[Rfam]
RNA sequence: CCGUGCUAGACGGGGAGUUAGCGGUGCCCUGUACCCGCAAUCCGCUAUAGCGGGGUUGAAUGCCUAUUUGAGGUUUGAACAUGUAAGGUCUGCCUUACAAAAGUGAGCGUUGACAAUUGGGUCCUGCGCAAUGGGAACCUAUGAAUCUGGUCAGGUCCGGAAGGAAGCAGCCAUAAGUAGACUUUUCCAUGUGCCGUGGGGUAGCCUAGUUCGAGUUACCUUUUGUAAGUAACGCUUGGUUGUUCCUGUCGAGAAUAGGAUGCACGG
Number, nucleotide and partner (000 for none) at each position: 001c267002c266003g265004u264005g263006c262007u260008a000009g057010a056011c055012g030013g029014g028015g027016a000017g025018u024019u023020a000021g000022c000023g019024g018025u017026g000027c015028c014029c013030u012031g000032u000033a000034c054035c053036c052037g051038c050039a000040a000041u000042c000043c000044g000045c000046u000047a000048u000049a000050g038051c037052g036053g035054g034055g011056u010057u009058g000059a000060a000061u000062g000063c259064c258065u257066a256067u255068u254069u253070g000071a000072g250073g249074u248075u000076u000077g000078a244079a243080c242081a241082u000083g000084u238085a237086a236087g235088g000089u000090c000091u231092g230093c000094c000095u228096u227097a226098c225099a224100a223101a000102a000103g220104u000105g000106a217107g216108c215109g000110u000111u000112g000113a000114c000115a211116a210117u209118u208119g207120g206121g205122u204123c200124c199125u198126g197127c196128g195129c191130a190131a000132u189133g188134g187135g186136a185137a000138c000139c180140u179141a178142u177143g000144a000145a000146u000147c000148u173149g172150g171151u170152c000153a000154g000155g000156u165157c164158c163159g000160g000161a000162a000163g158164g157165a156166a000167g000168c000169a000170g151171c150172c149173a148174u000175a000176a000177g142178u141179a140180g139181a000182c000183u000184u000185u136186u135187c134188c133189a132190u130191g129192u000193g000194c000195c128196g127197u126198g125199g124200g123201g000202u000203a000204g122205c121206c120207u119208a118209g117210u116211u115212c000213g000214a000215g108216u107217u106218a000219c000220c103221u000222u000223u100224u099225g098226u097227a096228a095229g000230u092231a091232a000233c000234g000235c087236u086237u085238g084239g000240u000241u081242g080243u079244u078245c000246c000247u000248g074249u073250c072251g000252a000253g069254a068255a067256u066257a065258g064259g063260a007261u000262g006263c005264a004265c003266g002267g001